[Rfam]
RNA sequence: UAGUUCCCCUCGAAGGAAGCUCUGCCUCUCUGCUCCUGCUCAGCUGGAACAGGGGAGUCUGGCGGGACACACGUGGUCUCCCUUGUGGUUUAGGAGGGCCGUCCUGAGUAUAGGGCUAGCUCUUAAAGGCACCAGAGGACAAU
Number, nucleotide and partner (000 for none) at each position: 001u000002a000003g068004u067005u066006c065007c064008c000009c000010u062011c061012g000013a000014a000015g000016g000017a000018a000019g000020c000021u000022c000023u000024g058025c057026c000027u000028c054029u053030c052031u051032g050033c000034u000035c000036c000037u000038g000039c000040u000041c000042a000043g000044c000045u000046g000047g000048a000049a000050c032051a031052g030053g029054g028055g000056a000057g025058u024059c000060u000061g011062g010063c000064g007065g006066g005067a004068c003069a000070c000071a000072c000073g000074u000075g000076g000077u000078c000079u000080c000081c138082c137083u136084u135085g000086u000087g000088g130089u129090u128091u127092a000093g000094g124095a123096g122097g121098g120099c119100c000101g116102u115103c114104c113105u112106g111107a000108g000109u000110a000111u106112a105113g104114g103115g102116c101117u000118a000119g099120c098121u097122c096123u095124u094125a000126a000127a091128g090129g089130c088131a000132c000133c000134a000135g084136a083137g082138g081139a000140c000141a000142a000143u000

Small Cajal body specific RNA 11: a 143-nucleotide RNA sequence from Cnephaeus nilssonii. The base pairs follow the family's consensus structure, which was predicted with RNAalifold. The literature on the family includes a 2002 paper in EMBO J by Darzacq et al., "Cajal body-specific small nuclear RNAs: a novel class of 2'-O-methylation and pseudouridylation guide RNAs". The match comes from Rfam's covariance-model search (75 bits). The organism belongs to Cnephaeus, within Eukaryota. Rfam classes the family as a small Cajal body RNA. scaRNAs are a specific class of small nuclear RNAs which localise to the Cajal bodies and guide the modification of RNA polymerase II transcribed spliceosomal RNAs U1, U2, U4, U5 and U12.